Rfam assigns this 301-nucleotide RNA from Pythium oligandrum to the family "Metazoan signal recognition particle RNA". Rfam classes the family as a non-coding RNA gene. The family's consensus secondary structure is taken from published work. The signal recognition particle (SRP) is a universally conserved ribonucleoprotein.

RNA sequence: GCCGGGUUGAGUGGCGUCAACUUGUAACAGGAAGUUUCUGCCUGGGUAGUGGGGUUCUGAGGGUUGUGGUAUGCCUUGUGCUGUCACUAUCAGCAGGAUGUCGAUGGUGCGUCCAUUUCAAACCAGGAGUAGACAUUGGGGUAUUGACGGAAGUCAGUACAUCGAGGUCUCUAAGGAGGGGUGAACCGCCCCAGGCUGGAUAACAGAGCAGGGAAAAGCUCCCGCUCUUGGUAGUGGAAGGAUCGCGCGCCAGAAUCCUGACGUGACUGUGCAAGGCUAUCAACCGCAAUUCGAUAGCUCU
Numbered sequence: 001g002c003c004g005g006g007u008u009g010a011g012u013g014g015c016g017u018c019a020a021c022u023u024g025u026a027a028c029a030g031g032a033a034g035u036u037u038c039u040g041c042c043u044g045g046g047u048a049g050u051g052g053g054g055u056u057c058u059g060a061g062g063g064u065u066g067u068g069g070u071a072u073g074c075c076u077u078g079u080g081c082u083g084u085c086a087c088u089a090u091c092a093g094c095a096g097g098a099u100g101u102c103g104a105u106g107g108u109g110c111g112u113c114c115a116u117u118u119c120a121a122a123c124c125a126g127g128a129g130u131a132g133a134c135a136u137u138g139g140g141g142u143a144u145u146g147a148c149g150g151a152a153g154u155c156a157g158u159a160c161a162u163c164g165a166g167g168u169c170u171c172u173a174a175g176g177a178g179g180g181g182u183g184a185a186c187c188g189c190c191c192c193a194g195g196c197u198g199g200a201u202a203a204c205a206g207a208g209c210a211g212g213g214a215a216a217a218g219c220u221c222c223c224g225c226u227c228u229u230g231g232u233a234g235u236g237g238a239a240g241g242a243u244c245g246c247g248c249g250c251c252a253g254a255a256u257c258c259u260g261a262c263g264u265g266a267c268u269g270u271g272c273a274a275g276g277c278u279a280u281c282a283a284c285c286g287c288a289a290u291u292c293g294a295u296a297g298c299u300c301u
Base pairs, nucleotide, nucleotide: 001047002046003045004023005022006021007020008019009018010017028044029043030042051301052300053299054298055297056296058294061292062291063290064289065288066287073277074276075275076274077273078272080267082265083264095259096258097257098256099255101253105252106251107250108249109248110247111246112245113241114240116239117238118237119236120235122232123231124230125229126228127227128226129225130224131170132169133168134167136165137164138163139162141160142159143158144157145156146155147154148153171175178222179221180220181219182218189213190212191211196206197205198204